[Rfam]
RNA sequence: GGCUGGUGCGAGUGCAGUGGUGUUUAUAACUAAUAGAUCACAACCAGUGGCAGGCAGAUUUCUUUGUUCCUUCUCUACUCCCACUGCUUCACUUGACUAGCCGCUC
Numbered sequence: 001g002g003c004u005g006g007u008g009c010g011a012g013u014g015c016a017g018u019g020g021u022g023u024u025u026a027u028a029a030c031u032a033a034u035a036g037a038u039c040a041c042a043a044c045c046a047g048u049g050g051c052a053g054g055c056a057g058a059u060u061u062c063u064u065u066g067u068u069c070c071u072u073c074u075c076u077a078c079u080c081c082c083a084c085u086g087c088u089u090c091a092c093u094u095g096a097c098u099a100g101c102c103g104c105u106c
Base pairs, nucleotide, nucleotide: 001102002101003100004099005098006097007096010094011093014090016085017084018083019082020081022080028068029067030066032064033063
RNA: Y RNA